Rfam assigns this 118-nucleotide RNA from Sarcina sp. DSM 11001 to the family "THF (Tetrahydrofolate) riboswitch aptamer". The source organism's lineage runs through Bacteria, Bacillati, Bacillota, Clostridia and Sarcina. Tetrahydrofolate (THF) riboswitch was first reported for Ames et al. as an RNA motif in 5' untranslated (5'-UTR)regions of folate transport and biosynthesis genes in Firmicutes genomes.
[Rfam]
RNA sequence: UGCAGAGUAGACUGCGGAGCGUUAAGUGCCCGGUGAACAGGGAGUUGUCACCAGGACGAAAAGGAGUGCCAUUGUAAUGACACUGAUCCUUGCGGUUCCGCGGCCGAUUCCCGCUGCU
Numbered sequence: 001u002g003c004a005g006a007g008u009a010g011a012c013u014g015c016g017g018a019g020c021g022u023u024a025a026g027u028g029c030c031c032g033g034u035g036a037a038c039a040g041g042g043a044g045u046u047g048u049c050a051c052c053a054g055g056a057c058g059a060a061a062a063g064g065a066g067u068g069c070c071a072u073u074g075u076a077a078u079g080a081c082a083c084u085g086a087u088c089c090u091u092g093c094g095g096u097u098c099c100g101c102g103g104c105c106g107a108u109u110c111c112c113g114c115u116g117c118u
Base pairs, nucleotide, nucleotide: 002117003116004115005114010105012103013102014101015100016099017098018097019096020094021093022092026057027056029055030054032052033051034050035049036048040111041110042109043108061091062090063089064088

Pairs were carried over by alignment from the consensus structure, which is taken from published work. For this family Rfam cites "A eubacterial riboswitch class that senses the coenzyme tetrahydrofolate" (Ames et al., Chem Biol, 2010).